[Rfam]
This 153-nucleotide RNA sequence from Leptolyngbyaceae cyanobacterium M33_DOE_097 belongs to the Rfam family "Ribosomal protein L10 leader".
About the family: This family is a putative r-protein leader autoregulatory structure found in B. subtilis and other low-GC Gram-positive bacteria.
A search with the family's covariance model found it, with a score of 63 bits.
RNA sequence: GCCCAAUUGAAUAAAAAGCCCGAGACAGCAGGUGCGUCUUUGCUUAAUUUCCUGCCGAGGUUUGUAUUGACUUUGAUUACGAGUGCCGCAUAAGCACUGUGUGAUCAAGUUGUCAGCCUCGGUGUCUACCACCGGGGCUUUUUAGUGGCGCGA
Numbered sequence: 001g002c003c004c005a006a007u008u009g010a011a012u013a014a015a016a017a018g019c020c021c022g023a024g025a026c027a028g029c030a031g032g033u034g035c036g037u038c039u040u041u042g043c044u045u046a047a048u049u050u051c052c053u054g055c056c057g058a059g060g061u062u063u064g065u066a067u068u069g070a071c072u073u074u075g076a077u078u079a080c081g082a083g084u085g086c087c088g089c090a091u092a093a094g095c096a097c098u099g100u101g102u103g104a105u106c107a108a109g110u111u112g113u114c115a116g117c118c119u120c121g122g123u124g125u126c127u128a129c130c131a132c133c134g135g136g137g138c139u140u141u142u143u144a145g146u147g148g149c150g151c152g153a
Stems, first nucleotide, its partner, number of pairs: 028055005034043003116138009